[Rfam]
RNA sequence: AACAACCCAGAAUCGUGUGGGUGAGACCCUGCGUGCAGGUUCGAGCCGAGCGAAGCGAGACAGCAACGCGUCAGCGUUGACCCGAAGGGCGAGGCCAGAGGCCGAGUCAUCCCGCACGGCCCACCA
Number, nucleotide and partner (000 for none) at each position: 001a000002a000003c000004a000005a000006c000007c000008c000009a000010g000011a000012a000013u000014c000015g117016u116017g115018u114019g113020g112021g111022u109023g000024a000025g000026a000027c000028c000029c000030u000031g000032c091033g090034u000035g000036c088037a000038g000039g000040u086041u085042c084043g083044a000045g000046c000047c057048g056049a000050g000051c000052g000053a000054a000055g000056c048057g047058a000059g000060a000061c000062a000063g000064c079065a078066a077067c076068g075069c074070g000071u000072c000073a000074g069075c068076g067077u066078u065079g064080a000081c000082c000083c043084g042085a041086a040087g000088g036089g000090c033091g032092a000093g000094g000095c000096c000097a000098g000099a000100g000101g000102c000103c000104g000105a000106g000107u000108c000109a022110u000111c021112c020113c019114g018115c017116a016117c015118g000119g000120c000121c000122c000123a000124c000125c000126a000
Background
A member of the RNA family "RtT RNA" from Yersinia mollaretii, 126 nucleotides long. The literature on the family includes a 1991 paper in Nucleic Acids Res by Bosl and Kersten, "A novel RNA product of the tyrT operon of Escherichia coli". Rfam links the family to the GO term cellular response to amino acid starvation. Rfam describes the family as follows. This family represents a bacterial cis-regulatory element known as RtT RNA. The exact function of RtT is unknown although it is thought that it may be involved in changing the cellular response in relation to amino acid starvation. The organism belongs to Yersinia mollaretii, within Bacteria. Rfam 15.1 lists 651 matches to the family in 204 species.